SAM (S-adenosyl methionine) riboswitch aptamer: a 113-nucleotide RNA sequence from Luteipulveratus halotolerans. For this family Rfam cites "The aptamer core of SAM-IV riboswitches mimics the ligand-binding site of SAM-I riboswitches" (Weinberg et al., RNA, 2008). Taxonomically the source falls in Luteipulveratus (Bacteria, Actinomycetota, Actinomycetes, Dermacoccaceae). A search with the family's covariance model found it, with a score of 106 bits. The family has 40 seed sequences and 2,360 matches in Rfam 15.1. Rfam's curators write: SAM-IV is a mRNA element that regulates gene expression via direct sensing of S-adenosylmethionine (SAM or AdoMet).

RNA sequence: GGUCAAGAGUCUCAGCGACAAGCCCCGGCUGGCUGAGCGGCAACCCUCCAUCGCGGUGGGGUGCUCCGGGUGACGACCCGGCCGACGGCAUCCGCCCUCGGCAAGCGCGAACG
Numbered sequence: 001g002g003u004c005a006a007g008a009g010u011c012u013c014a015g016c017g018a019c020a021a022g023c024c025c026c027g028g029c030u031g032g033c034u035g036a037g038c039g040g041c042a043a044c045c046c047u048c049c050a051u052c053g054c055g056g057u058g059g060g061g062u063g064c065u066c067c068g069g070g071u072g073a074c075g076a077c078c079c080g081g082c083c084g085a086c087g088g089c090a091u092c093c094g095c096c097c098u099c100g101g102c103a104a105g106c107g108c109g110a111a112c113g
Base pairs, nucleotide, nucleotide: 001078002077003076004075009038011037012036013035014034015033016032021030022029039065040064041063044061045060046059048056049055081102082101083100084099085098087096088095089094